Rfam assigns this 132-nucleotide sequence from Drosophila kikkawai to the family "Small nucleolar RNA psi28S-3316". It is annotated as an H/ACA-box small nucleolar RNA. Taxonomically the source falls in Sophophora (Eukaryota, Ecdysozoa, Endopterygota, Acalyptratae). Rfam describes the family as follows. psi28S-3316 is a member of the H/ACA class of snoRNA. This family is responsible for guiding the modification of uridine 3316 in Drosophila 28S rRNA to pseudouridine. Rfam links the family to the GO terms nucleolus and RNA processing. The family's consensus secondary structure was predicted with RNAfold.
[Rfam]
RNA sequence: CGCACCUAAAAGCGUUUUCUUGCCAGCUCGUUCAAAUGCUCUCGAAAAUCGUAGAUGUGUGCCAGAGCGAAGCUCAGUUGCAAGUGAUUCGGCCUUUAUAAGUGGCAGAUAUCCAUAUAGCUGACAACAAGA
Numbered sequence: 001c002g003c004a005c006c007u008a009a010a011a012g013c014g015u016u017u018u019c020u021u022g023c024c025a026g027c028u029c030g031u032u033c034a035a036a037u038g039c040u041c042u043c044g045a046a047a048a049u050c051g052u053a054g055a056u057g058u059g060u061g062c063c064a065g066a067g068c069g070a071a072g073c074u075c076a077g078u079u080g081c082a083a084g085u086g087a088u089u090c091g092g093c094c095u096u097u098a099u100a101a102g103u104g105g106c107a108g109a110u111a112u113c114c115a116u117a118u119a120g121c122u123g124a125c126a127a128c129a130a131g132a
Stems, first nucleotide, its partner, number of pairs: 002062004006057001012052003015048005022039002025037001074124005084116003087112002090108001092106003